[Rfam]
Rfam assigns this 164-nucleotide part of an RNA from Plasmodiophora brassicae to the family "Eukaryotic large subunit ribosomal RNA". The match comes from Rfam's covariance-model search (2826 bits).

RNA sequence: GAUAACUGGCUUGUGGCAGCCAAGCGUUCAUAGCGACGUUGCUUUUUGAUUCUUCGAUGUCGGCUCUUCCUAUCCCUGCCUCGCACACGGGGCAAACGGUAAGAUUGUUCACCUACCAACAGGGAACGUGAGCUGGGUUUAGACCGUCGCGAGACAGGUUAGUU
Number, nucleotide and partner (000 for none) at each position: 001g000002a000003u000004a000005a000006c000007u000008g000009g050010c000011u048012u000013g047014u000015g043016g042017c041018a040019g039020c038021c000022a000023a000024g034025c033026g000027u000028u000029c000030a000031u000032a000033g025034c024035g000036a000037c000038g020039u019040u018041g017042c016043u015044u000045u000046u000047u013048g011049a000050u009051u000052c000053u000054u000055c000056g000057a000058u000059g000060u000061c136062g134063g133064c132065u131066c128067u125068u124069c123070c122071u121072a000073u000074c099075c098076c000077u094078g093079c092080c091081u090082c089083g000084c000085a000086c000087a000088c000089g082090g081091g080092g079093c078094a077095a000096a000097c000098g075099g074100u000101a000102a114103g113104a000105u111106u000107g000108u000109u000110c000111a105112c000113c103114u102115a000116c000117c000118a000119a000120c000121a071122g070123g069124g068125a067126a000127c000128g066129u000130g000131a065132g064133c063134u062135g000136g061137g000138u000139u000140u000141a000142g160143a159144c158145c157146g155147u154148c153149g000150c000151g000152a000153g148154a147155c146156a000157g145158g144159u143160u142161a000162g000163u000164u000
The base pairs follow the family's consensus structure, which is taken from published work.